[Rfam]
RNA sequence: AUCUCUCAGAUGUGGAUGAUACUGCAUCAGGAACUGAUUGGAUGAUUCUGAUUGGCCAUCAGUUCUUGAUGCAUUGCCUUCAGCAUCGAAAGA
Numbered sequence: 001a002u003c004u005c006u007c008a009g010a011u012g013u014g015g016a017u018g019a020u021a022c023u024g025c026a027u028c029a030g031g032a033a034c035u036g037a038u039u040g041g042a043u044g045a046u047u048c049u050g051a052u053u054g055g056c057c058a059u060c061a062g063u064u065c066u067u068g069a070u071g072c073a074u075u076g077c078c079u080u081c082a083g084c085a086u087c088g089a090a091a092g093a
Stems, first nucleotide, its partner, number of pairs: 023073005029067009039058003

The record is a 93-nucleotide sequence from Astyanax mexicanus, which matches "mir-217 microRNA precursor family" in Rfam.
The family's consensus secondary structure was predicted with RNAalifold.